Shown here is a 52-nucleotide RNA sequence from Kaustia mangrovi, a member of the family "serC leader". The organism belongs to Kaustia, within Bacteria. A search with the family's covariance model found it, with a score of 62 bits. The literature on the family includes a 2005 paper in Genome Biol by Corbino et al., "Evidence for a second class of S-adenosylmethionine riboswitches and other regulatory RNA motifs in alpha-proteobacteria".
[Rfam]
RNA sequence: CCGUGGGCCACCCCUCCCCACCGAGGGGCCGCUGUCUGAAAGGGUAGCAAGA
Numbered sequence: 001c002c003g004u005g006g007g008c009c010a011c012c013c014c015u016c017c018c019c020a021c022c023g024a025g026g027g028g029c030c031g032c033u034g035u036c037u038g039a040a041a042g043g044g045u046a047g048c049a050a051g052a
Stems, first nucleotide, its partner, number of pairs: 011028006032047006
Pairs were carried over by alignment from the consensus structure.
About the family: This family is a putative regulatory RNA structure that is found upstream of the serC-serA operon in some alpha-proteobacteria. The final stem of the structure overlaps the ribosome binding site of the serC reading frame.
Rfam links the family to the GO term regulation of gene expression.
By type it is a cis-regulatory leader.